[Rfam]
RNA sequence: CUCUCGAGGAGCGUUGCAGCGUUGACCGGUCUUUCUCAAGACCCGGUCACGUCAGGCUCGGGAUCGCAACGACGCUCACCUGAU
Numbered sequence: 001c002u003c004u005c006g007a008g009g010a011g012c013g014u015u016g017c018a019g020c021g022u023u024g025a026c027c028g029g030u031c032u033u034u035c036u037c038a039a040g041a042c043c044c045g046g047u048c049a050c051g052u053c054a055g056g057c058u059c060g061g062g063a064u065c066g067c068a069a070c071g072a073c074g075c076u077c078a079c080c081u082g083a084u
Stems, first nucleotide, its partner, number of pairs: 002063006020051003024047001